[Rfam]
RNA sequence: GCCACUCUGAAAAGCAGCGCGCGAGCGCUCACCGACGGUGCAAACGUAUCGAGCCGAGGCUCGGUGCCGGAAUCUCUCAGGUCCCAUCACAGAGCGGGGAGG
Dot-bracket structure: .((.(((((......((((......)))).(((((..(.(....((.....................))....).))).))).......))))).)).....
The record is a 102-nucleotide RNA from Leucobacter tardus, which matches "Glycine riboswitch aptamer" in Rfam. The organism belongs to Leucobacter, within Bacteria. It scores 42 bits against the family's covariance model. About the family: This family represents the bacterial glycine riboswitch. Glycine riboswitches usually consist of two metabolite-binding aptamers domains with similar structures in tandem.